[Rfam]
Rfam assigns this 94-nucleotide RNA from Hespellia stercorisuis to the family "Selenocysteine transfer RNA".
It scores 67 bits against the family's covariance model.
Gene Ontology term of the family: triplet codon-amino acid adaptor activity.
RNA sequence: GGGGGUGGUUAGGUAACUGGUGUGCCUCCUGGUCUUCAAAACCAGUGUGGGGCGUUUAGAGCGUCCCGGGUGGGUUCGAUUCCCACACAUCCUC
Number, nucleotide and partner (000 for none) at each position: 001g094002g093003g092004g091005g090006u089007g088008g086009u000010u000011a027012g026013g025014u024015a023016a000017c022018u000019g000020g000021u000022g017023u015024g014025c013026c012027u011028c000029c045030u044031g043032g042033u041034c000035u000036u000037c000038a000039a000040a000041a033042c032043c031044a030045g029046u000047g000048u068049g067050g066051g065052g064053c000054g000055u000056u000057u000058a000059g000060a000061g000062c000063g000064u052065c051066c050067c049068g048069g000070g000071u085072g084073g083074g082075u000076u000077c000078g000079a000080u000081u000082c074083c073084c072085a071086c008087a000088c007089a006090u005091c004092c003093u002094c001